[Rfam]
RNA sequence: GAGAUCAAAGAAUCACCCUCGGUUGUUGGUUAAAUUAUUAUCUUGUCAAUCAGGAUUUUGGCGAAAUCUAAUGCUGUUAAACACCCGAUAAAUCAAUCAAUUCAAUAGUGAUAAUGGAGAGGAUGAUGAGUAAAAAGAAAGGGUUAACUACCGCA
Dot-bracket structure: .........((((.......(..(((((.(.(.......((..((((((........))))))..)).........).)......)))))..)......))))....((.((..(.......)..))..)).........((.....))......
Shown here is a 155-nucleotide RNA from Yersinia bercovieri, a member of the family "KatA 5' UTR thermometer". A reference for the family is Righetti et al. (2016), "Temperature-responsive in vitro RNA structurome of Yersinia pseudotuberculosis", Proc Natl Acad Sci U S A. The family's RNA type in Rfam is RNA thermoregulator. Lineage of the source: Bacteria > Pseudomonadati > Gammaproteobacteria > Enterobacterales > Yersinia bercovieri. Rfam's curators write: Involved in protection against oxidative stress. The pairing is the family consensus, mapped onto this sequence.